[Rfam]
RNA sequence: AGCUGGACGGGGUCGACGGCGCGGGUCACAACGAGGUAAUCGCGCAUCACGAUGCCGUGACGGUUCUC
Number, nucleotide and partner (000 for none) at each position: 001a000002g000003c000004u063005g000006g061007a000008c059009g058010g000011g000012g029013u028014c000015g027016a026017c025018g000019g000020c000021g000022c000023g000024g000025g017026u016027c015028a013029c012030a000031a000032c000033g000034a000035g056036g055037u054038a053039a000040u052041c051042g050043c000044g048045c000046a000047u000048c044049a000050c042051g041052a040053u038054g037055c036056c035057g000058u009059g008060a000061c006062g000063g004064u000065u000066c000067u000068c000